[Rfam]
RNA sequence: AUCGAAAGAAGAGGACGCGAUUAACAAGAGUAACUGAUUGGAGGCGGGUAACCGCUGGGGAUAAUCAGUGAAAGGGGCAAUCGCCGAAAUGGUUCCGGUUGUUACUGGCUGGACUGUUGGGCUUUGGUUGAAUAAAUCAAGGACUGUCGCAACUUAGGUUUAAGUUGCGGGGCGCUAUCGACGAU
Numbered sequence: 001a002u003c004g005a006a007a008g009a010a011g012a013g014g015a016c017g018c019g020a021u022u023a024a025c026a027a028g029a030g031u032a033a034c035u036g037a038u039u040g041g042a043g044g045c046g047g048g049u050a051a052c053c054g055c056u057g058g059g060g061a062u063a064a065u066c067a068g069u070g071a072a073a074g075g076g077g078c079a080a081u082c083g084c085c086g087a088a089a090u091g092g093u094u095c096c097g098g099u100u101g102u103u104a105c106u107g108g109c110u111g112g113a114c115u116g117u118u119g120g121g122c123u124u125u126g127g128u129u130g131a132a133u134a135a136a137u138c139a140a141g142g143a144c145u146g147u148c149g150c151a152a153c154u155u156a157g158g159u160u161u162a163a164g165u166u167g168c169g170g171g172g173c174g175c176u177a178u179c180g181a182c183g184a185u
Stems, first nucleotide, its partner, number of pairs: 008178001010176002017084006025076001033069008088118005094113006119145002122142008147170007
RNA: Lysine riboswitch aptamer
Organism: Lactiplantibacillus kimchii